[Rfam]
The family of this 190-nucleotide sequence from Hibiscus syriacus is "small nucleolar RNA snoR143". On this family, see Chen and Wu, Nucleic Acids Res 2009: "Mining small RNA sequencing data: a new approach to identify small nucleolar RNAs in Arabidopsis". Pairs were carried over by alignment from the consensus structure, which was predicted with RNAalifold. The family's RNA type in Rfam is H/ACA-box small nucleolar RNA. NCBI's taxonomy places the organism under Eukaryota, Euphyllophyta, Magnoliopsida, Malvaceae, Hibiscus.
RNA sequence: UUGCAUUUUUAAUGAAUAAAGCGAAUUUUCGGUGCUUUGUUUCGUCAACAACGGUGCAGAAAUUAAAGGCUUGAUUUUUCUUUUGAAACUGAAGGGAAAAUUAAGCAGCGGGCCGACAACCGUAGGGAUGGUAUCCACAGAUGAAAGGAUUUUUACUCUCCCUUGUGUCUACUGAUUCCAUCUCACAUUU
Numbered sequence: 001u002u003g004c005a006u007u008u009u010u011a012a013u014g015a016a017u018a019a020a021g022c023g024a025a026u027u028u029u030c031g032g033u034g035c036u037u038u039g040u041u042u043c044g045u046c047a048a049c050a051a052c053g054g055u056g057c058a059g060a061a062a063u064u065a066a067a068g069g070c071u072u073g074a075u076u077u078u079u080c081u082u083u084u085g086a087a088a089c090u091g092a093a094g095g096g097a098a099a100a101u102u103a104a105g106c107a108g109c110g111g112g113c114c115g116a117c118a119a120c121c122g123u124a125g126g127g128a129u130g131g132u133a134u135c136c137a138c139a140g141a142u143g144a145a146a147g148g149a150u151u152u153u154u155a156c157u158c159u160c161c162c163u164u165g166u167g168u169c170u171a172c173u174g175a176u177u178c179c180a181u182c183u184c185a186c187a188u189u190u
Stems, first nucleotide, its partner, number of pairs: 002058005009050001013047002015041009125184007133177001144164002147161002